[Rfam]
RNA sequence: CCCCACAGUGAACUGUGGGGCUACAUUCUGUCGUCUCUUCGAGACU
Numbered sequence: 001c002c003c004c005a006c007a008g009u010g011a012a013c014u015g016u017g018g019g020g021c022u023a024c025a026u027u028c029u030g031u032c033g034u035c036u037c038u039u040c041g042a043g044a045c046u
Stems, first nucleotide, its partner, number of pairs: 001020008033045005

This 46-nucleotide RNA from Rhodohalobacter sp. SW132 belongs to the Rfam family "Acido-Lenti-1 RNA". A search with the family's covariance model found it, with a score of 43 bits. Rfam classes the family as a small RNA.